[Rfam]
RNA sequence: GUCAAUAAGGAAAGCAGGAAAGACCGGACGCAGCGAUAGGGCGGUUCACAAGUAACAUGGUAGUUAUGCUGACAAACGUAUCAGAUGGAGUGAAUGCAGAAUAAACAUGGUCCGGCAAAGCAGUUGAAGAAAGUAGGAACGGUAGGACAAGAAAGCAUAGAGUUCGGAACUAUUUGAAGAAAACUGAACAGGUUGAGCCAAUCAACACUUUACUCCUCUACCAAGAAGCUGUUAAGCGGAAGAAUCAACCGAGCGAGAGGACACAGUACCUUGUUGAC
Numbered sequence: 001g002u003c004a005a006u007a008a009g010g011a012a013a014g015c016a017g018g019a020a021a022g023a024c025c026g027g028a029c030g031c032a033g034c035g036a037u038a039g040g041g042c043g044g045u046u047c048a049c050a051a052g053u054a055a056c057a058u059g060g061u062a063g064u065u066a067u068g069c070u071g072a073c074a075a076a077c078g079u080a081u082c083a084g085a086u087g088g089a090g091u092g093a094a095u096g097c098a099g100a101a102u103a104a105a106c107a108u109g110g111u112c113c114g115g116c117a118a119a120g121c122a123g124u125u126g127a128a129g130a131a132a133g134u135a136g137g138a139a140c141g142g143u144a145g146g147a148c149a150a151g152a153a154a155g156c157a158u159a160g161a162g163u164u165c166g167g168a169a170c171u172a173u174u175u176g177a178a179g180a181a182a183a184c185u186g187a188a189c190a191g192g193u194u195g196a197g198c199c200a201a202u203c204a205a206c207a208c209u210u211u212a213c214u215c216c217u218c219u220a221c222c223a224a225g226a227a228g229c230u231g232u233u234a235a236g237c238g239g240a241a242g243a244a245u246c247a248a249c250c251g252a253g254c255g256a257g258a259g260g261a262c263a264c265a266g267u268a269c270c271u272u273g274u275u276g277a278c
Base pairs, nucleotide, nucleotide: 001278002277003276004275005274006273007272008271009270010269024115025114026113027112028111029110044095045094046093047092048091049090053066054065055064056063069084070083071082072081123249124248125247126246127245133237134236138233139232140231141230142229143228144217145216146215147214152211153210154209155208162189163188164187165186166185167184192206193205194204195203196202
Rfam assigns this 278-nucleotide RNA sequence to the family "RAGATH-8 RNA". For this family Rfam cites "New classes of self-cleaving ribozymes revealed by comparative genomics analysis" (Weinberg et al., Nat Chem Biol, 2015). The family's consensus secondary structure is taken from published work. It is one of the family's seed sequences.